A member of the RNA family "Small nucleolar RNA SNORD14" from Adiantum capillus-veneris, 137 nucleotides long. The family has 18 seed sequences and 4,559 matches in Rfam 15.1. The base pairs follow the family's consensus structure, which was predicted with PFOLD.
RNA sequence: ACCAAGUGAUGAAGCUGAAGAAGGCUUGUUUCUCAAAACAUUCGCAGUGGCCGCCUAAGAGCUUUCGUCCACCGUCGCUUUGCCUUCGCUGGGCUUGAGAGCUGGUGCUGUUUUUUCUUCCUUGGAUAUCUGAUGGU
Numbered sequence: 001a002c003c004a005a006g007u008g009a010u011g012a013a014g015c016u017g018a019a020g021a022a023g024g025c026u027u028g029u030u031u032c033u034c035a036a037a038a039c040a041u042u043c044g045c046a047g048u049g050g051c052c053g054c055c056u057a058a059g060a061g062c063u064u065u066c067g068u069c070c071a072c073c074g075u076c077g078c079u080u081u082g083c084c085u086u087c088g089c090u091g092g093g094c095u096u097g098a099g100a101g102c103u104g105g106u107g108c109u110g111u112u113u114u115u116u117c118u119u120c121c122u123u124g125g126a127u128a129u130c131u132g133a134u135g136g137u
Stems, first nucleotide, its partner, number of pairs: 001137004061102006
Rfam describes the family as follows. U14 small nucleolar RNA (U14 snoRNA) is required for early cleavages of eukaryotic precursor rRNAs. In yeasts, this molecule possess a stem-loop region (known as the Y-domain) which is essential for function. A similar structure, but with a different consensus sequence, is found in plants, but is absent in vertebrates.